[Rfam]
RNA sequence: CUCAUGGGGUCUGCGACCGCCCCACGAGGCGCCAGCCGAAGUUCGCGUUCCAGAUCGAUCAUGAUCAGUCCCUCUGGGAGGAACGCCCAUG
Numbered sequence: 001c002u003c004a005u006g007g008g009g010u011c012u013g014c015g016a017c018c019g020c021c022c023c024a025c026g027a028g029g030c031g032c033c034a035g036c037c038g039a040a041g042u043u044c045g046c047g048u049u050c051c052a053g054a055u056c057g058a059u060c061a062u063g064a065u066c067a068g069u070c071c072c073u074c075u076g077g078g079a080g081g082a083a084c085g086c087c088c089a090u091g
Stems, first nucleotide, its partner, number of pairs: 005024006045086006